[Rfam]
RNA sequence: GGCUGGUAUGAAGGUAGUGAGUUAGCUCAAUUGAUUGUUCACAGUCAGUUAUAGGUCAAGCUCCUUGUUCUACUCUUCCCCUCUUCUCACUACUGCACUUCACUAGUCUUAA
Numbered sequence: 001g002g003c004u005g006g007u008a009u010g011a012a013g014g015u016a017g018u019g020a021g022u023u024a025g026c027u028c029a030a031u032u033g034a035u036u037g038u039u040c041a042c043a044g045u046c047a048g049u050u051a052u053a054g055g056u057c058a059a060g061c062u063c064c065u066u067g068u069u070c071u072a073c074u075c076u077u078c079c080c081c082u083c084u085u086c087u088c089a090c091u092a093c094u095g096c097a098c099u100u101c102a103c104u105a106g107u108c109u110u111a112a
Stems, first nucleotide, its partner, number of pairs: 001108007010100002014096002016091006043074003047071002
Dot-bracket structure: (((((((..((..((((((((.....................(((.((.....................)))))...........))))))...))..)).)))))))....
Shown here is a 112-nucleotide sequence from Theropithecus gelada, a member of the family "Y RNA". Rfam classes the family as a non-coding RNA gene. Lineage of the source: Eukaryota > Sarcopterygii > Amniota > Catarrhini > Theropithecus. The match comes from Rfam's covariance-model search (64 bits).